Notes
A member of the RNA family "L4-Archaeoglobi ribosomal protein leades", 100 nucleotides long. Rfam classes the family as a cis-regulatory leader. On this family, see Eckert and Weinberg, BMC Microbiol 2020: "Discovery of 20 novel ribosomal leader candidates in bacteria and archaea".
RNA sequence: CUGAUAAUCGCGUUUGGGUAAUUUGUGGACUACAAAGCCCAAUUUCUCUCACAAUACCUCCUAACAUGGAUGUUGUCGAUGGACAACGCGUUUCUGUCAG
Numbered sequence: 001c002u003g004a005u006a007a008u009c010g011c012g013u014u015u016g017g018g019u020a021a022u023u024u025g026u027g028g029a030c031u032a033c034a035a036a037g038c039c040c041a042a043u044u045u046c047u048c049u050c051a052c053a054a055u056a057c058c059u060c061c062u063a064a065c066a067u068g069g070a071u072g073u074u075g076u077c078g079a080u081g082g083a084c085a086a087c088g089c090g091u092u093u094c095u096g097u098c099a100g
Stems, first nucleotide, its partner, number of pairs: 001100005009090005015041004023035005043085001045083003049079002051076006